[Rfam]
RNA sequence: UGACGAUGGUAGGGAGAGACCGACGAAGCCGAGCGCUUCGAAGGCACCGAAGGAGCAAGUCUGAGGCCGGCCGGCCAACGAUUAAUCUCUCAGGUAAAAGUACCGCCAUCCGAC
Number, nucleotide and partner (000 for none) at each position: 001u000002g000003a000004c000005g110006a109007u108008g107009g106010u105011a000012g104013g103014g000015a000016g000017a000018g000019a000020c044021c043022g000023a000024c000025g000026a000027a000028g000029c000030c000031g000032a000033g000034c000035g000036c000037u000038u000039c000040g000041a000042a000043g021044g020045c000046a095047c094048c093049g091050a090051a000052g000053g089054a088055g087056c000057a000058a000059g082060u081061c000062u000063g000064a000065g000066g000067c000068c000069g000070g000071c000072c000073g000074g000075c000076c000077a000078a000079c000080g000081a060082u059083u000084a000085a000086u000087c055088u054089c053090u050091c049092a000093g048094g047095u046096a000097a000098a000099a000100g000101u000102a000103c013104c012105g010106c009107c008108a007109u006110c005111c000112g000113a000114c000
The record is a 114-nucleotide sequence from Cohnella thailandensis, which matches "Glycine riboswitch aptamer" in Rfam. The organism belongs to Cohnella, within Bacteria.